About this RNA:
The record is a 159-nucleotide sequence from Streptococcus pyogenes, which matches "Streptococcus sRNA sagA" in Rfam. The base pairs follow the family's consensus structure, which was predicted with CMfinder. Rfam's curators put it in the seed alignment.

RNA sequence: CAACUAAGUUAUCUUUGGUAACUUCUGAUUAUAGAUGAAUGGCAUAGAGGUGUUAGAAAACAUGAGACAAAAGUAAUCUUCUUGAUGCUAGCGUCUCAGGUAAUUAGCAGGUACUAGACAGUACCUGCUAAUUACUAUAUGUUUAGUAAAAUGAGAUAG
Numbered sequence: 001c002a003a004c005u006a007a008g009u010u011a012u013c014u015u016u017g018g019u020a021a022c023u024u025c026u027g028a029u030u031a032u033a034g035a036u037g038a039a040u041g042g043c044a045u046a047g048a049g050g051u052g053u054u055a056g057a058a059a060a061c062a063u064g065a066g067a068c069a070a071a072a073g074u075a076a077u078c079u080u081c082u083u084g085a086u087g088c089u090a091g092c093g094u095c096u097c098a099g100g101u102a103a104u105u106a107g108c109a110g111g112u113a114c115u116a117g118a119c120a121g122u123a124c125c126u127g128c129u130a131a132u133u134a135c136u137a138u139a140u141g142u143u144u145a146g147u148a149a150a151a152u153g154a155g156a157u158a159g
Stems, first nucleotide, its partner, number of pairs: 008022005025047003029042001056144003060140001064097005072089001076086003099136017